[Rfam]
RNA sequence: CUUGAGCGGACGCCGAACCCUGUCACCGCGCGAGGUUCACGACGACCCGACGACAGGGGCGGGGGACCCACUUCCGGGCGCUGGCAACAGCGUCCUCGGGGUGAAGCCCGGCGAACCUCGGUUCGCAGGGCCGGGUGAUUUCUCCCACCCGAACCCGACAGCUGACUUCGUAGGCGUACAGGAGAGGCAAC
Numbered sequence: 001c002u003u004g005a006g007c008g009g010a011c012g013c014c015g016a017a018c019c020c021u022g023u024c025a026c027c028g029c030g031c032g033a034g035g036u037u038c039a040c041g042a043c044g045a046c047c048c049g050a051c052g053a054c055a056g057g058g059g060c061g062g063g064g065g066a067c068c069c070a071c072u073u074c075c076g077g078g079c080g081c082u083g084g085c086a087a088c089a090g091c092g093u094c095c096u097c098g099g100g101g102u103g104a105a106g107c108c109c110g111g112c113g114a115a116c117c118u119c120g121g122u123u124c125g126c127a128g129g130g131c132c133g134g135g136u137g138a139u140u141u142c143u144c145c146c147a148c149c150c151g152a153a154c155c156c157g158a159c160a161g162c163u164g165a166c167u168u169c170g171u172a173g174g175c176g177u178a179c180a181g182g183a184g185a186g187g188c189a190a191c
Stems, first nucleotide, its partner, number of pairs: 011176004018058007059171006069098001099156003107130003133150004